RNA: glmS glucosamine-6-phosphate activated ribozyme aptamer
RNA sequence: UAAGUAAGUGAAGCGCCAGCACUUGUACACGACGGACGGCAAUUCGUGGCAAGUGGACGAGGUGGAGGUGUUCGAGAAUGUUCGGCGGGGACCUCCCGGUGCAUAGCCAGCACCGUAACAUCAUUGCAGAAAACAGCGAGGCAACUUGCUGGACAAUGCAUGAUGAAUGGUUGAA
Number, nucleotide and partner (000 for none) at each position: 001u000002a000003a000004g000005u000006a000007a000008g000009u000010g000011a000012a000013g000014c000015g000016c000017c000018a000019g000020c055021a054022c053023u052024u051025g050026u049027a000028c046029a000030c000031g000032a000033c000034g000035g000036a000037c000038g000039g000040c000041a000042a000043u000044u000045c000046g028047u000048g000049g026050c025051a024052a023053g022054u021055g020056g000057a000058c000059g000060a000061g000062g000063u000064g096065g095066a094067g093068g092069u000070g000071u000072u085073c084074g083075a082076g000077a000078a000079u000080g000081u000082u075083c074084g073085g072086c000087g000088g000089g000090g000091a000092c068093c067094u066095c065096c064097c115098g114099g113100u112101g111102c110103a000104u000105a000106g000107c000108c000109a000110g102111c101112a100113c099114c098115g097116u000117a000118a000119c165120a164121u163122c162123a161124u160125u000126g159127c000128a000129g000130a000131a000132a000133a000134c151135a150136g149137c148138g147139a146140g145141g000142c000143a000144a000145c140146u139147u138148g137149c136150u135151g134152g000153a000154c000155a000156a000157u000158g000159c126160a124161u123162g122163a121164u120165g119166a000167a000168u000169g000170g000171u000172u000173g000174a000175a000